[Rfam]
RNA sequence: CAACCUCUGGCAAGAGUUGUGAAUGUUG
Numbered sequence: 001c002a003a004c005c006u007c008u009g010g011c012a013a014g015a016g017u018u019g020u021g022a023a024u025g026u027u028g
Base pairs, nucleotide, nucleotide: 001028002027003026004025008023010020011019012018013017

About this RNA: The record is a 28-nucleotide sequence, which matches "L19-Flavobacteria ribosomal protein leader" in Rfam.